[Rfam]
RNA sequence: UUAGCAGCCCAGAGGUUGCAAGUUUGAGGCACUCAUGGUGUGGCCCUGUCAGAUUCCAGUGAAUCUGUGAAUUCUGCU
Numbered sequence: 001u002u003a004g005c006a007g008c009c010c011a012g013a014g015g016u017u018g019c020a021a022g023u024u025u026g027a028g029g030c031a032c033u034c035a036u037g038g039u040g041u042g043g044c045c046c047u048g049u050c051a052g053a054u055u056c057c058a059g060u061g062a063a064u065c066u067g068u069g070a071a072u073u074c075u076g077c078u
Stems, first nucleotide, its partner, number of pairs: 014045003019042001022078001024076001026074003029041003050067007

This 78-nucleotide sequence from Crocodylus porosus belongs to the Rfam family "Mammalian CPEB3 ribozyme". A search with the family's covariance model found it, with a score of 41 bits. Gene Ontology term of the family: RNA nuclease activity.